A member of the RNA family "Purine riboswitch aptamer" from Halanaerobium sp. DL-01, 100 nucleotides long.
RNA sequence: AUAAAAACUUAAUCUGUACCUCAUAUAAAGGUGGGAAUAUGGCUCACAAGUCUCUACCGAACACCGUAAAUGUUCGACUAUGAGGGAAGUGUACCUAGGU
Numbered sequence: 001a002u003a004a005a006a007a008c009u010u011a012a013u014c015u016g017u018a019c020c021u022c023a024u025a026u027a028a029a030g031g032u033g034g035g036a037a038u039a040u041g042g043c044u045c046a047c048a049a050g051u052c053u054c055u056a057c058c059g060a061a062c063a064c065c066g067u068a069a070a071u072g073u074u075c076g077a078c079u080a081u082g083a084g085g086g087a088a089g090u091g092u093a094c095c096u097a098g099g100u
Stems, first nucleotide, its partner, number of pairs: 019085007031047005058076006
About this RNA: Pairs were carried over by alignment from the consensus structure, which is taken from published work. A search with the family's covariance model found it, with a score of 81 bits. NCBI's taxonomy places the organism under Bacteria, Bacillota, Halanaerobiales, Halanaerobiaceae, Halanaerobium.